This 82-nucleotide RNA sequence from Rugamonas rubra belongs to the Rfam family "Group II catalytic intron D1-D4-1". Gene Ontology term of the family: Group II intron splicing.

[Rfam]
RNA sequence: GCCUCAUGCCUGAAAGGGCGACGGGGCAGCUCGGAGCGAGAAGUCAGCAGAGGCCGUAGUAGCCGCAUUCCGGGCGAAGGGC
Numbered sequence: 001g002c003c004u005c006a007u008g009c010c011u012g013a014a015a016g017g018g019c020g021a022c023g024g025g026g027c028a029g030c031u032c033g034g035a036g037c038g039a040g041a042a043g044u045c046a047g048c049a050g051a052g053g054c055c056g057u058a059g060u061a062g063c064c065g066c067a068u069u070c071c072g073g074g075c076g077a078a079g080g081g082c
Stems, first nucleotide, its partner, number of pairs: 001027002004023001007020005044051002053082003062075003
Rfam describes the family as follows. Group II introns are found in rRNA, tRNA and mRNA of organelles in fungi, plants and protists, and also in mRNA in bacteria.